[Rfam]
RNA sequence: CGUGUGGUGUCCGACAAGAGAUCGGAUGGCGACACGGCCUGAUAAUCGAGGU
Numbered sequence: 001c002g003u004g005u006g007g008u009g010u011c012c013g014a015c016a017a018g019a020g021a022u023c024g025g026a027u028g029g030c031g032a033c034a035c036g037g038c039c040u041g042a043u044a045a046u047c048g049a050g051g052u
Base pairs, nucleotide, nucleotide: 001036002035003034004033005032007030008029011025012024013023014022015020